Source information
The record is a 118-nucleotide RNA sequence from Pseudorhizobium pelagicum, which matches "Alphaproteobacterial ar14" in Rfam. It scores 73 bits against the family's covariance model. Taxonomically the source falls in Pseudorhizobium (Bacteria, Pseudomonadati, Pseudomonadota, Hyphomicrobiales). About the family: Smr14C2 was renamed NfeR1 (Nodule Formation Efficiency RNA) highly expressed in salt stress and during the symbiotic interaction on legume roots.
RNA sequence: GCUCAGGUCGCUGUCGCACUCCUCCUCCCAGUGCCCGCGGCAUCGAUUGGCGCCGCCCUUCCUCCCAAGCCGCCAAUUACCAUCAAGCCCGGUGCCCCUCCCGCACCGGGCUUUUUUU
Numbered sequence: 001g002c003u004c005a006g007g008u009c010g011c012u013g014u015c016g017c018a019c020u021c022c023u024c025c026u027c028c029c030a031g032u033g034c035c036c037g038c039g040g041c042a043u044c045g046a047u048u049g050g051c052g053c054c055g056c057c058c059u060u061c062c063u064c065c066c067a068a069g070c071c072g073c074c075a076a077u078u079a080c081c082a083u084c085a086a087g088c089c090c091g092g093u094g095c096c097c098c099u100c101c102c103g104c105a106c107c108g109g110g111c112u113u114u115u116u117u118u
Base pairs, nucleotide, nucleotide: 007041008040009039011037013035015033016032017031045078046077047076048075049074050073051072052071054069085113086112087111088110089109090108091107092106093105094104095103